[Rfam]
RNA: Vault RNA
RNA sequence: GCGUUGGUUUGGCUCAGUGGUUACUUCCGAUUAAUCGAAAAGUCCCCCUCUCAUGGUCACCGGGAAACCGGCGACCGGAGAUCGAACCUCGGGCACUGUCCAACGUUUUC
Numbered sequence: 001g002c003g004u005u006g007g008u009u010u011g012g013c014u015c016a017g018u019g020g021u022u023a024c025u026u027c028c029g030a031u032u033a034a035u036c037g038a039a040a041a042g043u044c045c046c047c048c049u050c051u052c053a054u055g056g057u058c059a060c061c062g063g064g065a066a067a068c069c070g071g072c073g074a075c076c077g078g079a080g081a082u083c084g085a086a087c088c089u090c091g092g093g094c095a096c097u098g099u100c101c102a103a104c105g106u107u108u109u110c
Stems, first nucleotide, its partner, number of pairs: 002105006012094004017090001019088002025080005